[Rfam]
RNA sequence: AGAGUCGAUCGGACAGUCGCUGUUCCCUUUUGUUCCGCAAAAGGGGAGGGAGGAAAGUCCGGGCUCCAUAGGGCAAGGCGCCAGGUAACGCCUGGGAGGCGUGAGCCUACGGAAAGUGCCACAGAAAAUAACCGCCUAAGCGUUUCGGCGCCGGUAAGGGUGAAAAGGUGCGGUAAGAGCGCACCGCACGGCUGGCAACAGUCCGUGGCUAGGUAAACCCCGCCUGGAGCAAGACCAAAUAGGGAUCCAUUGGCGUGGCCCGCGCUGGAUCCGGGUAGGUUGCUAGAGGCAGUCAGUGAUGGCUGUCGUAGAGGAAUGACUGUCCUCGACAAAACCCGGCUUACAGAUCGACUCUCCAC
Dot-bracket structure: ((((((((((((((((((.((.(((((((((.......))))))))).))....[[[.[[[[[((((...[[[[.((((((((((.....)))))(((((....)))).)((...(((((...........(((((...((......))...)))..)).......((((((.......))))))(((((((((....))).))))).)..)))..)))))))))))))...((((......((((((...(((((.]]]]))))))))))).....))))......((((((((....))))))))..........)))))))..........]]]]]]]].).))))))))))....